[Rfam]
RNA: Alphaproteobacterial ar14
RNA sequence: AAGUUUCGCGACGACCCACCUCCUCCCGGGUCCGAGCGGAUUGGUGCCUGCGCAUCCUCCUCCCAGCGCAGGUUCAGUAGCGACGCCCGUCAGGUCCUCCCCCUGGCGGGCGUCUUC
Numbered sequence: 001a002a003g004u005u006u007c008g009c010g011a012c013g014a015c016c017c018a019c020c021u022c023c024u025c026c027c028g029g030g031u032c033c034g035a036g037c038g039g040a041u042u043g044g045u046g047c048c049u050g051c052g053c054a055u056c057c058u059c060c061u062c063c064c065a066g067c068g069c070a071g072g073u074u075c076a077g078u079a080g081c082g083a084c085g086c087c088c089g090u091c092a093g094g095u096c097c098u099c100c101c102c103c104u105g106g107c108g109g110g111c112g113u114c115u116u117c
Stems, first nucleotide, its partner, number of pairs: 007038003013032005044075001046073008084112011